RNA: DUF3800-VIII RNA
RNA sequence: CCGACCCUACCGAGCCGAAGGCCAACGCCCCGCGUCGGUUAUAACAUUAGGCGAGGCGGGGUUGC
Numbered sequence: 001c002c003g004a005c006c007c008u009a010c011c012g013a014g015c016c017g018a019a020g021g022c023c024a025a026c027g028c029c030c031c032g033c034g035u036c037g038g039u040u041a042u043a044a045c046a047u048u049a050g051g052c053g054a055g056g057c058g059g060g061g062u063u064g065c
Stems, first nucleotide, its partner, number of pairs: 002064007010056002014052003020040004025035004